[Rfam]
RNA sequence: ACUCAACAUUACUUUAAUUAGAAAGGGUGAGUUUAGGUUGUAAAAGCAAGCCUUCUUUGAAAGGAUCCUUGAGCAAUCUGUUAGCCCUAAACCUGUUUAUAGGAGUUU
Dot-bracket structure: .......................(((((......(((((....(((....((((......))))...)))....)))))....)))))....................
This 108-nucleotide sequence from Robiginitalea biformata belongs to the Rfam family "6S-Flavo RNA". It is one of the family's seed sequences. Lineage of the source: Bacteria > Pseudomonadati > Flavobacteriales > Flavobacteriaceae > Robiginitalea biformata.